[Rfam]
Shown here is a 73-nucleotide sequence from Magallana gigas, a member of the family "mir-219 microRNA precursor family". Gene Ontology terms of the family: miRNA-mediated post-transcriptional gene silencing and RISC complex.
RNA sequence: UCAGGCCAUGAUUGUCCAAACGCAAUUCUUGUGAAGGUUAAGCCAAGAACUGUGUAUGGACAUCAGUGCUUGG
Numbered sequence: 001u002c003a004g005g006c007c008a009u010g011a012u013u014g015u016c017c018a019a020a021c022g023c024a025a026u027u028c029u030u031g032u033g034a035a036g037g038u039u040a041a042g043c044c045a046a047g048a049a050c051u052g053u054g055u056a057u058g059g060a061c062a063u064c065a066g067u068g069c070u071u072g073g
Base pairs, nucleotide, nucleotide: 002072003071004070005069006068009065010064011063012062014061015060016059017058018057021054022053023052024051026049027048028047029046030045031044